A member of the RNA family "int-alpA RNA" from Muribacter muris, 65 nucleotides long.
Lineage of the source: Bacteria > Pseudomonadota > Gammaproteobacteria > Pasteurellales > Muribacter.
The family's RNA type in Rfam is small RNA.
Rfam's curators write: Acidobacteria (1 example), Planctomycetes (1 example), Proteobacteria.

[Rfam]
RNA sequence: AACCCGCCUAGGCUGAUCACCGAAAACGAGAACCUUACUUGCUGGCGGGUUUUCUUUCAUAAGGA
Numbered sequence: 001a002a003c004c005c006g007c008c009u010a011g012g013c014u015g016a017u018c019a020c021c022g023a024a025a026a027c028g029a030g031a032a033c034c035u036u037a038c039u040u041g042c043u044g045g046c047g048g049g050u051u052u053u054c055u056u057u058c059a060u061a062a063g064g065a
Base pairs, nucleotide, nucleotide: 001051002050003049004048005047006046007045008044011021012020027041028040029039030038034064035063036062